[Rfam]
RNA sequence: GCAUCUCGCAGCAAACGUCCGGCAGAGACGGGGAAACCACUUUUGACCUGCUGUCAUACAGGUCUUGGGGUGAAGCCGCACAGCCUGCAGCCGCGGGCCUGAGUGCGGCCGGGUGCCUCCCAUCCGAAUCCGACAGCUCACCUCGCAGGCAUUGGGAGAGGCUAC
Numbered sequence: 001g002c003a004u005c006u007c008g009c010a011g012c013a014a015a016c017g018u019c020c021g022g023c024a025g026a027g028a029c030g031g032g033g034a035a036a037c038c039a040c041u042u043u044u045g046a047c048c049u050g051c052u053g054u055c056a057u058a059c060a061g062g063u064c065u066u067g068g069g070g071u072g073a074a075g076c077c078g079c080a081c082a083g084c085c086u087g088c089a090g091c092c093g094c095g096g097g098c099c100u101g102a103g104u105g106c107g108g109c110c111g112g113g114u115g116c117c118u119c120c121c122a123u124c125c126g127a128a129u130c131c132g133a134c135a136g137c138u139c140a141c142c143u144c145g146c147a148g149g150c151a152u153u154g155g156g157a158g159a160g161g162c163u164a165c
Base pairs, nucleotide, nucleotide: 005027006026007025029145030144031143032142033141038067039066068131069130070129076108077107078106079105080104081103111125112124113123114122
Rfam assigns this 165-nucleotide sequence to the family "c-di-AMP riboswitch aptamer (ydaO/yuaA leader)". Its family is annotated with regulation of gene expression and cyclic-di-AMP binding in the Gene Ontology.